A member of the RNA family "Betaproteobacteria toxic small RNA" from Cognatundibacterium rugosum, 62 nucleotides long.
RNA sequence: UGUCUCCUCCACCUACUCCUUUGGUGGAUUCCACCCGAAGCCUGGUCUUCGGGUAUUUUUUU
Numbered sequence: 001u002g003u004c005u006c007c008u009c010c011a012c013c014u015a016c017u018c019c020u021u022u023g024g025u026g027g028a029u030u031c032c033a034c035c036c037g038a039a040g041c042c043u044g045g046u047c048u049u050c051g052g053g054u055a056u057u058u059u060u061u062u
Stems, first nucleotide, its partner, number of pairs: 008028006033054007

Rfam describes the family as follows. Overexpression in amino aid rich medium attenuates growth, suggesting role in repressing amino acid intake and metabolism.